[Rfam]
RNA sequence: CGGACACGGGUUCGUUGGAAUGUAACCUUAAAGGUUGAACCGUAAA
Numbered sequence: 001c002g003g004a005c006a007c008g009g010g011u012u013c014g015u016u017g018g019a020a021u022g023u024a025a026c027c028u029u030a031a032a033g034g035u036u037g038a039a040c041c042g043u044a045a046a
Stems, first nucleotide, its partner, number of pairs: 001014005016042003024036005
A member of the RNA family "eL15-Euryarchaeota ribosomal protein leader", 46 nucleotides long. A reference for the family is Eckert and Weinberg (2020), "Discovery of 20 novel ribosomal leader candidates in bacteria and archaea", BMC Microbiol. The sequence is in the family's curated seed alignment.